This 71-nucleotide RNA sequence from Chryseobacterium salivictor belongs to the Rfam family "tRNA". Pairs were carried over by alignment from the consensus structure, which is taken from published work.

RNA sequence: GGUUCUUUGGCCGAGUGGUUAGGCAGUGGUCUGCAACACCAUCUACAGCGGUUCGAAUCCGCUAGGAACCU
Numbered sequence: 001g002g003u004u005c006u007u008u009g010g011c012c013g014a015g016u017g018g019u020u021a022g023g024c025a026g027u028g029g030u031c032u033g034c035a036a037c038a039c040c041a042u043c044u045a046c047a048g049c050g051g052u053u054c055g056a057a058u059c060c061g062c063u064a065g066g067a068a069c070c071u
Stems, first nucleotide, its partner, number of pairs: 001070007010024003026042005047063005

Record summary:
It scores 61 bits against the family's covariance model. The family's RNA type in Rfam is transfer RNA. Lineage of the source: Bacteria > Pseudomonadati > Bacteroidota > Flavobacteriales > Chryseobacterium.